[Rfam]
RNA sequence: AAAAAAAAUGGGCUGAACGCCCAAAAUCUUGUUGCCGGUGGUCGCAUCUGAGCCGCACAUGAAAAGCCGCACGCCCAGCGACUUUGCGAUUGUAGCCUUUU
Numbered sequence: 001a002a003a004a005a006a007a008a009u010g011g012g013c014u015g016a017a018c019g020c021c022c023a024a025a026a027u028c029u030u031g032u033u034g035c036c037g038g039u040g041g042u043c044g045c046a047u048c049u050g051a052g053c054c055g056c057a058c059a060u061g062a063a064a065a066g067c068c069g070c071a072c073g074c075c076c077a078g079c080g081a082c083u084u085u086g087c088g089a090u091u092g093u094a095g096c097c098u099u100u101u
Stems, first nucleotide, its partner, number of pairs: 009023005039092007050084003054080003
Dot-bracket structure: ........(((((.....)))))...............(((((((....(((.(((.....................))).))).))))))).........
Shown here is a 101-nucleotide RNA from Paraburkholderia megapolitana, a member of the family "Burkholderia sRNA Bp1_Cand612_SIPHT". Taxonomically the source falls in Paraburkholderia (Bacteria, Pseudomonadati, Burkholderiales, Burkholderiaceae). For this family Rfam cites "Computational discovery and RT-PCR validation of novel Burkholderia conserved and Burkholderia pseudomallei unique sRNAs" (Khoo et al., BMC Genomics, 2012). Pairs were carried over by alignment from the consensus structure, which was predicted with RNAalifold. It scores 97 bits against the family's covariance model. The family's RNA type in Rfam is small RNA.